Rfam assigns this 38-nucleotide RNA from Kosakonia cowanii to the family "JUMPstart RNA". It scores 53 bits against the family's covariance model.
Nucleotides: 038
Base pairs, nucleotide, nucleotide: 008025009024010023011022012021
Number, partner (000 for none) and nucleotide at each position: 001000c002000a003000g004000c005000g006000c007000g008025c009024g010023g011022g012021u013000a014000g015000c016000u017000g018000a019000a020000a021012g022011c023010c024009u025008g026000g027000g028000g029000c030000g031000g032000u033000a034000g035000c036000g037000u038000g

The source organism's lineage runs through Bacteria, Pseudomonadati, Pseudomonadota, Gammaproteobacteria and Kosakonia cowanii.